RNA sequence: AUUCUGCAGUCAUGCGCUGCUGACAGCCGUCAGCACCAUGCCCUGGCAGCUCCGGUCUUCAAGGCUGCAACGCGGUUCGCCGCGUGGAUCGAACCAGUCCGCCUCGCAUCGCCCAUUGCGGACGAGCGUCUUCGCGACGCCCGAUGC
Numbered sequence: 001a002u003u004c005u006g007c008a009g010u011c012a013u014g015c016g017c018u019g020c021u022g023a024c025a026g027c028c029g030u031c032a033g034c035a036c037c038a039u040g041c042c043c044u045g046g047c048a049g050c051u052c053c054g055g056u057c058u059u060c061a062a063g064g065c066u067g068c069a070a071c072g073c074g075g076u077u078c079g080c081c082g083c084g085u086g087g088a089u090c091g092a093a094c095c096a097g098u099c100c101g102c103c104u105c106g107c108a109u110c111g112c113c114c115a116u117u118g119c120g121g122a123c124g125a126g127c128g129u130c131u132u133c134g135c136g137a138c139g140c141c142c143g144a145u146g147c
Base pairs, nucleotide, nucleotide: 011040012039013038014037019034020033021032022031023030024029046068047067048066049065050064051063054090055089056088057087070085071084072083073082074081075080118147119146120145126140127139128138129137130136
RNA: radC RNA
Organism: Parasulfuritortus cantonensis